[Rfam]
RNA sequence: CGUGGUCACGCACUGACCUGAUGACAGGGACGGGGGACCCAUCUUCGGGUUCCGCUCGCGGAGCCCUUGGGGUGAAGCCGGAUGUUCCAUCCGGCCGGGUACUUCUCCUACCCGAACCCGACAGCUCACCUCGCAGGCGCAAGGAGAGGGACC
Numbered sequence: 001c002g003u004g005g006u007c008a009c010g011c012a013c014u015g016a017c018c019u020g021a022u023g024a025c026a027g028g029g030a031c032g033g034g035g036g037a038c039c040c041a042u043c044u045u046c047g048g049g050u051u052c053c054g055c056u057c058g059c060g061g062a063g064c065c066c067u068u069g070g071g072g073u074g075a076a077g078c079c080g081g082a083u084g085u086u087c088c089a090u091c092c093g094g095c096c097g098g099g100u101a102c103u104u105c106u107c108c109u110a111c112c113c114g115a116a117c118c119c120g121a122c123a124g125c126u127c128a129c130c131u132c133g134c135a136g137g138c139g140c141a142a143g144g145a146g147a148g149g150g151a152c153c
Base pairs, nucleotide, nucleotide: 011139013137014136017029018028019027031133032132033131034130035129040069041068070119071118072117078094079093080092081091097113098112099111100110
The family of this 153-nucleotide RNA sequence from Xylanimonas cellulosilytica is "c-di-AMP riboswitch aptamer (ydaO/yuaA leader)".
The source organism's lineage runs through Bacteria, Bacillati, Promicromonosporaceae, Xylanimonas and Xylanimonas cellulosilytica.
The base pairs follow the family's consensus structure.
The match comes from Rfam's covariance-model search (74 bits).